A member of the RNA family "permuted transfer-messenger RNA" from Lichenibacterium minor, 212 nucleotides long. Rfam classes the family as a non-coding RNA gene. Bacterial tmRNA, also known as 10Sa RNA or SsrA, is named for its dual tRNA and mRNA-like properties.
RNA sequence: GGCGAUAAACGGAAUUCGGAAUAAACCAUACGGACCCCGGGGCGGUACCGGGCGGGUCCACCUAAGCCUUCGACGUCGAAGGUUUCGGUGGGCCCGAAAUAGGAUUGACGUGGGUGUAAAGGGAUCUCUUUUGCUCGGCAUUGUACCGCCGUUAUCGGGCUAAACCUAUAGUUGCCAAUGACAACUAUGCUCCGGUGGCCGUCGCCGCGUAA
Numbered sequence: 001g002g003c004g005a006u007a008a009a010c011g012g013a014a015u016u017c018g019g020a021a022u023a024a025a026c027c028a029u030a031c032g033g034a035c036c037c038c039g040g041g042g043c044g045g046u047a048c049c050g051g052g053c054g055g056g057u058c059c060a061c062c063u064a065a066g067c068c069u070u071c072g073a074c075g076u077c078g079a080a081g082g083u084u085u086c087g088g089u090g091g092g093c094c095c096g097a098a099a100u101a102g103g104a105u106u107g108a109c110g111u112g113g114g115u116g117u118a119a120a121g122g123g124a125u126c127u128c129u130u131u132u133g134c135u136c137g138g139c140a141u142u143g144u145a146c147c148g149c150c151g152u153u154a155u156c157g158g159g160c161u162a163a164a165c166c167u168a169u170a171g172u173u174g175c176c177a178a179u180g181a182c183a184a185c186u187a188u189g190c191u192c193c194g195g196u197g198g199c200c201g202u203c204g205c206c207g208c209g210u211a212a
Stems, first nucleotide, its partner, number of pairs: 001135005014125004026114002030111003036052005053096007136151004